RNA sequence: GAGAUGUGAUGAUAGUACUUUGGUCCGUGUUUAUGAAUGUCUUGUUGAUUUUCUUUCAAAGUGCUGAUCUC
Numbered sequence: 001g002a003g004a005u006g007u008g009a010u011g012a013u014a015g016u017a018c019u020u021u022g023g024u025c026c027g028u029g030u031u032u033a034u035g036a037a038u039g040u041c042u043u044g045u046u047g048a049u050u051u052u053c054u055u056u057c058a059a060a061g062u063g064c065u066g067a068u069c070u071c
Base pairs, nucleotide, nucleotide: 001071002070003069004068
Dot-bracket structure: ((((...............................................................))))

The record is a 71-nucleotide RNA sequence from Cryptotermes secundus, which matches "Small nucleolar RNA SNORD18" in Rfam. Taxonomically the source falls in Cryptotermes (Eukaryota, Protostomia, Allotriocarida, Insecta). It is annotated as a C/D-box small nucleolar RNA.